[Rfam]
Nucleotides: 121
Stems, first nucleotide, its partner, number of pairs: 001031004009024006041084011053071007086103007104121006
Number, partner (000 for none) and nucleotide at each position: 001031u002030g003029c004028c005000u006000a007000a008000a009024c010023u011022c012021u013020a014019u015000u016000u017000a018000u019014a020013u021012g022011g023010a024009g025000c026000a027000u028004g029003g030002c031001a032000u033000a034000a035000a036000a037000a038000a039000a040000u041084c042083c043082c044081a045080u046079c047078c048077c049076u050075g051074a052000u053071a054070c055069u056068g057067a058066g059065c060000u061000c062000c063000c064000c065059g066058u067057u068056c069055a070054g071053u072000a073000c074051u075050c076049a077048g078047g079046g080045a081044u082043g083042g084041g085000u086103c087102a088101u089100g090099g091098c092097c093000g094000a095000a096000a097092g098091g099090u100089u101088a102087u103086g104121g105120g106119c107118a108117a109116u110000u111000g112000a113000a114000a115000g116109a117108u118107u119106g120105u121104c
This 121-nucleotide sequence belongs to the Rfam family "LOOT RNA".